[Rfam]
RNA sequence: UUUUUAGCAUAAGUGUGCCCCAUGCAAUAUUUGGGAUAUAUUUAUGCUAAAA
Numbered sequence: 001u002u003u004u005u006a007g008c009a010u011a012a013g014u015g016u017g018c019c020c021c022a023u024g025c026a027a028u029a030u031u032u033g034g035g036a037u038a039u040a041u042u043u044a045u046g047c048u049a050a051a052a
Base pairs, nucleotide, nucleotide: 006048007047008046009045010044011043012042014040015039016038019035020034021033022031
The family of this 52-nucleotide RNA from Mustela putorius is "mir-1302 microRNA precursor family".
The family's consensus secondary structure was predicted with WAR.
A search with the family's covariance model found it, with a score of 73 bits.